[Rfam]
RNA sequence: AGCUUUGCACAGUGGCAGUUUCGUAGCCAAUGAGGUUUAUCCGAGGCGUGAUUAUUGCUAAUUGAAAACCUUGAUAUAGAGAAAUGUGUUACAUUUCUAUACAUCAAUAAUGA
Number, nucleotide and partner (000 for none) at each position: 001a000002g000003c000004u000005u000006u000007g000008c000009a000010c000011a000012g000013u000014g000015g000016c000017a000018g000019u000020u000021u051022c050023g049024u048025a000026g047027c046028c045029a000030a000031u000032g000033a000034g042035g041036u000037u000038u000039a000040u000041c035042c034043g000044a000045g028046g027047c026048g024049u023050g022051a021052u000053u000054a000055u000056u000057g000058c000059u000060a000061a000062u000063u000064g000065a000066a000067a000068a000069c000070c000071u000072u000073g000074a104075u103076a000077u101078a100079g000080a098081g097082a096083a095084a094085u093086g092087u000088g000089u000090u000091a000092c086093a085094u084095u083096u082097c081098u080099a000100u078101a077102c000103a075104u074105c000106a000107a000108u000109a000110a000111u000112g000113a000
Rfam assigns this 113-nucleotide RNA from Enhydra lutris to the family "U4 spliceosomal RNA". The family's consensus secondary structure is taken from published work. Clan: U4 clan.